[Rfam]
RNA: HNH endonuclease-associated RNA and ORF (HEARO) RNA
Organism: Limnospira maxima
RNA sequence: GUCAGCACCCCCGGCUGAAGCACGGGGGCUUCGUGCCCCCGCUUUCAGGUAGCUGACCAGCUUAAGCCUUAACUGGCUACGUUCAGAGCAAGAGUUAAAGUUCCUACCCUGGAAUGCGUGCUAGUUCCAGGCACUAGAACCAAAUCGUUAAACAGUCCUAAGGGGUUAAGACAGUGCGAUUUGGAAAGUACCGACUCUGAACAUUAGCGAAGCAAACGUUAC
Dot-bracket structure: (((((((.((((.((....))..)).)).....................).))))))..(((.(((((......))))..((((((......((((.......((..((((((((...[[[[.))))))))....))..(((((((((...((.((.((((....)).)))).)))))))))))........)))))))))).).)))..]]].].......